[Rfam]
The family of this 140-nucleotide RNA sequence from Solanum tuberosum is "small nucleolar RNA snoR137". The match comes from Rfam's covariance-model search (88 bits). Rfam 15.1 lists 808 matches to the family in 221 species.
RNA sequence: AUUGCUUCUUACUUGUGAACACCUCUUAUAUAUGUGGGGAUGUUCCUGUUUCGGAAGCAUAUAUUAAUUCUUUUGCCAGUUUUAAACAGCGUGAUGAAUAUUUCAUUUUUGCAGCGCGCUACCUGUCUUCUGGUACAAAC
Numbered sequence: 001a002u003u004g005c006u007u008c009u010u011a012c013u014u015g016u017g018a019a020c021a022c023c024u025c026u027u028a029u030a031u032a033u034g035u036g037g038g039g040a041u042g043u044u045c046c047u048g049u050u051u052c053g054g055a056a057g058c059a060u061a062u063a064u065u066a067a068u069u070c071u072u073u074u075g076c077c078a079g080u081u082u083u084a085a086a087c088a089g090c091g092u093g094a095u096g097a098a099u100a101u102u103u104c105a106u107u108u109u110u111g112c113a114g115c116g117c118g119c120u121a122c123c124u125g126u127c128u129u130c131u132g133g134u135a136c137a138a139a140c
Base pairs, nucleotide, nucleotide: 003059004058005057006056007055008054017045018044019043020042022039023038024037025036075134076133077132078131079130088120089119090118092116093115095113096112